[Rfam]
RNA sequence: AUCAUCCUUUCCUUGGGGUUGCGCUACUGUCCAAUGAGCGUGCCGUGAGGGCAGUACAGCUAACGCCUAAGCAACACACUCGCAUCAACCAACCGUGAAGCUUUGCUUCACGUUGGUGCAAUUUUUGGAAAA
Numbered sequence: 001a002u003c004a005u006c007c008u009u010u011c012c013u014u015g016g017g018g019u020u021g022c023g024c025u026a027c028u029g030u031c032c033a034a035u036g037a038g039c040g041u042g043c044c045g046u047g048a049g050g051g052c053a054g055u056a057c058a059g060c061u062a063a064c065g066c067c068u069a070a071g072c073a074a075c076a077c078a079c080u081c082g083c084a085u086c087a088a089c090c091a092a093c094c095g096u097g098a099a100g101c102u103u104u105g106c107u108u109c110a111c112g113u114u115g116g117u118g119c120a121a122u123u124u125u126u127g128g129a130a131a132a
Base pairs, nucleotide, nucleotide: 006018007017008016009015021060022059026055027054028053029052030051031050032049038046039045082119083118084117085116086115087114096110097109098108099107100106101105

Rfam assigns this 132-nucleotide sequence from Callithrix jacchus to the family "U4atac minor spliceosomal RNA". NCBI's taxonomy places the organism under Eukaryota, Metazoa, Deuterostomia, Euteleostomi, Callithrix. The family has 61 seed sequences and 1,648 matches in Rfam 15.1. The base pairs follow the family's consensus structure, which is taken from published work. Rfam's curators write: U4atac is an essential component of the minor U12-type spliceosome complex which is required for removal of the rarer class of eukaryotic introns (AT-AC, U12-type). It scores 100 bits against the family's covariance model. A reference for the family is Lorkovic et al. (2005), "Evolutionary conservation of minor U12-type spliceosome between plants and humans", RNA.